TPP riboswitch aptamer (THI element): a 101-nucleotide RNA from Pantoea sp. M_5. A search with the family's covariance model found it, with a score of 71 bits. The organism belongs to Pantoea, within Bacteria.
RNA sequence: CGCUUCUUGUCGGAGUGCCCAGCCGGGCUGAGACCGUUAAUUCGGGAUCCGCGGAACCUGAUCAGGUUAGAACCUGCGAAGGGAACAAGAGUAAAUUUUUA
Dot-bracket structure: .....(((((((((.(((((....))))......((......)))..)))).....(((...((((......))))...)))..)))))............